[Rfam]
RNA sequence: UUGGCCCCUUUUCGGGAAUGAGGGUUGCGGGUGGGCAGGUUGGCUCCUGUCCCCUCGUGGCUCUCGCCCGAGCUGGGGCCC
Numbered sequence: 001u002u003g004g005c006c007c008c009u010u011u012u013c014g015g016g017a018a019u020g021a022g023g024g025u026u027g028c029g030g031g032u033g034g035g036c037a038g039g040u041u042g043g044c045u046c047c048u049g050u051c052c053c054c055u056c057g058u059g060g061c062u063c064u065c066g067c068c069c070g071a072g073c074u075g076g077g078g079c080c081c
Stems, first nucleotide, its partner, number of pairs: 003080006014069003019066002022063010033052007

Shown here is an 81-nucleotide RNA sequence, a member of the family "SL588 non-coding RNA". It is one of the family's seed sequences. The literature on the family includes a 2015 paper in RNA by Fricke et al., "Conserved RNA secondary structures and long-range interactions in hepatitis C viruses". By type it is a cis-regulatory element.